[Rfam]
RNA sequence: UGCAGGGUACGCAACUGGCGAUAGGUGCGCGCCCGCCUUCCGGGCUCCGCACUGACGUGGAAUCGCUGUACAGGGCGGCUUGCCGACCCUGUGCCAACCACCGGGGAGCGUACCGCCCAGACUGAUCGGGCGUCUUUAGCCGUUCGCCUGGGCAGCCCUU
Numbered sequence: 001u002g003c004a005g006g007g008u009a010c011g012c013a014a015c016u017g018g019c020g021a022u023a024g025g026u027g028c029g030c031g032c033c034c035g036c037c038u039u040c041c042g043g044g045c046u047c048c049g050c051a052c053u054g055a056c057g058u059g060g061a062a063u064c065g066c067u068g069u070a071c072a073g074g075g076c077g078g079c080u081u082g083c084c085g086a087c088c089c090u091g092u093g094c095c096a097a098c099c100a101c102c103g104g105g106g107a108g109c110g111u112a113c114c115g116c117c118c119a120g121a122c123u124g125a126u127c128g129g130g131c132g133u134c135u136u137u138a139g140c141c142g143u144u145c146g147c148c149u150g151g152g153c154a155g156c157c158c159u160u
Stems, first nucleotide, its partner, number of pairs: 006114007015105002017148005057101004137155001139153003
RNA: ZMP/ZTP riboswitch aptamer (pfl RNA motif)
Organism: Comamonas aquatica